[Rfam]
RNA sequence: ACACAGUAGUGCCAAACCCGUCGCGAGGCGGGGACGGAAAGCCACGGGUCUCUCGCAGAUAGCCGGGUUGCAUUG
Numbered sequence: 001a002c003a004c005a006g007u008a009g010u011g012c013c014a015a016a017c018c019c020g021u022c023g024c025g026a027g028g029c030g031g032g033g034a035c036g037g038a039a040a041g042c043c044a045c046g047g048g049u050c051u052c053u054c055g056c057a058g059a060u061a062g063c064c065g066g067g068u069u070g071c072a073u074u075g
Stems, first nucleotide, its partner, number of pairs: 012037002017032006040069004045065003048060003